[Rfam]
RNA sequence: CUGAAUAAUAAGCUUAAUCGUAUAGAGCGGGGGAAUCAUUAUCGGCAGUAAAGCUGCCUUGGGGUGAAUCCUUACAAAAGGUAGGAAACUCUCAAUUCCGAAUCCGACAGUUAACCCCGUUUGCUUUAUUGAGAGAAAGA
Numbered sequence: 001c002u003g004a005a006u007a008a009u010a011a012g013c014u015u016a017a018u019c020g021u022a023u024a025g026a027g028c029g030g031g032g033g034a035a036u037c038a039u040u041a042u043c044g045g046c047a048g049u050a051a052a053g054c055u056g057c058c059u060u061g062g063g064g065u066g067a068a069u070c071c072u073u074a075c076a077a078a079a080g081g082u083a084g085g086a087a088a089c090u091c092u093c094a095a096u097u098c099c100g101a102a103u104c105c106g107a108c109a110g111u112u113a114a115c116c117c118c119g120u121u122u123g124c125u126u127u128a129u130u131g132a133g134a135g136a137a138a139g140a
Stems, first nucleotide, its partner, number of pairs: 011125003018026002027120006037061002062105003070081004084099004